Shown here is a 72-nucleotide RNA sequence from Qiania dongpingensis, a member of the family "tRNA". The family's consensus secondary structure is taken from published work. Transfer RNA (tRNA) molecules are approximately 80 nucleotides in length. The family's RNA type in Rfam is transfer RNA.

[Rfam]
RNA sequence: GCACCUGUAGCUCAGUGGAUAGAGCAGUGGCCUCCGGAGCCACGUGCGGUGGUUCGAUUCCACUCAGGUGCA
Numbered sequence: 001g002c003a004c005c006u007g008u009a010g011c012u013c014a015g016u017g018g019a020u021a022g023a024g025c026a027g028u029g030g031c032c033u034c035c036g037g038a039g040c041c042a043c044g045u046g047c048g049g050u051g052g053u054u055c056g057a058u059u060c061c062a063c064u065c066a067g068g069u070g071c072a
Stems, first nucleotide, its partner, number of pairs: 001071007010025004027043005048064005